[Rfam]
RNA sequence: UAUUAGGUUGGUGCGAAAGUAAUUGCAGUUUUUGCUAUUACUUUUGACAGCAAAAACUGCAGUUACUUUCGCACCAACCUAAUA
Dot-bracket structure: ((((((((((((((((((((((((((((((((((((.(((....))).))))))))))))))))))))))))))))))))))))
RNA: mir-548 microRNA precursor family